Rfam assigns this 349-nucleotide RNA sequence from Novosphingobium ginsenosidimutans to the family "Alphaproteobacteria transfer-messenger RNA". Pairs were carried over by alignment from the consensus structure, which is taken from published work. The family's RNA type in Rfam is non-coding RNA gene. The literature on the family includes a 1996 paper in RNA by Williams and Bartel, "Phylogenetic analysis of tmRNA secondary structure". The family is grouped with related families in Rfam's "tRNA clan".
[Rfam]
RNA sequence: GCCCUUUUCAUUUGGGCCGGACUUCCCUAUAUAGGUCUUCGCCGGGUUCGCCCGGCUAUGGCGAUAAACUGCGGCGUGCAAUAGGCGCAGCGGACCCGGGGGCGGUACCCGGCGGCUCCACCACUUUCCCUGCCCCGGCAGGGACAAUGACGGGGCCGAACUAGGAUCGACGUGUGUUGAAAAGCGCUGUUUUUGCCCGGGCUGAGUAACCCGUUCAAGGCUCAAAACUCACAAGUGCCAACGAUAACGAAGCACUUGCUCUUGCUGCGUAAUUCUAGGGCCUAGCGGCCUGAAGUUACACUACCAAGAACGGGGUCCGGGGCGUACCUUGCAACAGAAACGCCCCACU
Numbered sequence: 001g002c003c004c005u006u007u008u009c010a011u012u013u014g015g016g017c018c019g020g021a022c023u024u025c026c027c028u029a030u031a032u033a034g035g036u037c038u039u040c041g042c043c044g045g046g047u048u049c050g051c052c053c054g055g056c057u058a059u060g061g062c063g064a065u066a067a068a069c070u071g072c073g074g075c076g077u078g079c080a081a082u083a084g085g086c087g088c089a090g091c092g093g094a095c096c097c098g099g100g101g102g103c104g105g106u107a108c109c110c111g112g113c114g115g116c117u118c119c120a121c122c123a124c125u126u127u128c129c130c131u132g133c134c135c136c137g138g139c140a141g142g143g144a145c146a147a148u149g150a151c152g153g154g155g156c157c158g159a160a161c162u163a164g165g166a167u168c169g170a171c172g173u174g175u176g177u178u179g180a181a182a183a184g185c186g187c188u189g190u191u192u193u194u195g196c197c198c199g200g201g202c203u204g205a206g207u208a209a210c211c212c213g214u215u216c217a218a219g220g221c222u223c224a225a226a227a228c229u230c231a232c233a234a235g236u237g238c239c240a241a242c243g244a245u246a247a248c249g250a251a252g253c254a255c256u257u258g259c260u261c262u263u264g265c266u267g268c269g270u271a272a273u274u275c276u277a278g279g280g281c282c283u284a285g286c287g288g289c290c291u292g293a294a295g296u297u298a299c300a301c302u303a304c305c306a307a308g309a310a311c312g313g314g315g316u317c318c319g320g321g322g323c324g325u326a327c328c329u330u331g332c333a334a335c336a337g338a339a340a341c342g343c344c345c346c347a348c349u
Stems, first nucleotide, its partner, number of pairs: 041056005060197005071190007086176003090173003096112005113158007198213004203224003313329004319346006